[Rfam]
RNA: Betaproteobacteria toxic small RNA
RNA sequence: UGUCUCCUCCACCCUCCUCCUUUGGUGGAUUCGAACCCAAGUCCAACCGACUUGGGUUUUUUUU
Numbered sequence: 001u002g003u004c005u006c007c008u009c010c011a012c013c014c015u016c017c018u019c020c021u022u023u024g025g026u027g028g029a030u031u032c033g034a035a036c037c038c039a040a041g042u043c044c045a046a047c048c049g050a051c052u053u054g055g056g057u058u059u060u061u062u063u064u
Base pairs, nucleotide, nucleotide: 008029009028010027011026012025013024035057036056037055038054039053040052041051042050